[Rfam]
RNA sequence: AUAUUUCUUCGGGGCAGGGUGUAACUCCCUACCGGCGGUGAUAGUCCGCGACUCUUCUUUUCAGAAGACUGAACCGGUGGAAAUCCGGUACCGACGGUAUAGUCCGGAUGAUAGAAGGAAUAA
Numbered sequence: 001a002u003a004u005u006u007c008u009u010c011g012g013g014g015c016a017g018g019g020u021g022u023a024a025c026u027c028c029c030u031a032c033c034g035g036c037g038g039u040g041a042u043a044g045u046c047c048g049c050g051a052c053u054c055u056u057c058u059u060u061u062c063a064g065a066a067g068a069c070u071g072a073a074c075c076g077g078u079g080g081a082a083a084u085c086c087g088g089u090a091c092c093g094a095c096g097g098u099a100u101a102g103u104c105c106g107g108a109u110g111a112u113a114g115a116a117g118g119a120a121u122a123a
Base pairs, nucleotide, nucleotide: 003121004120005119006118007117008116009115010114017029018028019027031103032102033093034092035049036048037047038046044091045090053068054067073089074088075087076086077085095106096105097104
RNA: FMN riboswitch aptamer (RFN element)
Organism: Odoribacter laneus